Nucleotides: 115
Stems, first nucleotide, its partner, number of pairs: 001108015019090018038071001040069005
Number, partner (000 for none) and nucleotide at each position: 001108u002107a003106g004105g005104g006103u007102g008101a009100c010099c011098a012097g013096a014095c015094g016000u017000c018000c019090c020089g021088a022087u023086u024085u025084a026083c027082c028081c029080g030079g031078g032077a033076c034075c035074g036073u037000c038071c039000c040069g041068u042067u043066u044065u045000u046000g047000a048000g049000c050000c051000c052000u053000g054000c055000c056000g057000c058000a059000g060000g061000g062000c063000u064000c065044a066043a067042a068041a069040c070000g071038g072000g073036a074035c075034g076033g077032u078031c079030c080029c081028g082027g083026g084025u085024a086023a087022a088021u089020c090019g091000g092000g093000a094015c095014g096013u097012c098011u099010g100009g101008u102007c103006a104005c105004c106003c107002u108001a109000u110000u111000u112000a113000a114000u115000a

This 115-nucleotide RNA sequence from Amphiprion percula belongs to the Rfam family "mir-584 microRNA precursor family". Lineage of the source: Eukaryota > Neopterygii > Eurypterygia > Percomorphaceae > Amphiprion.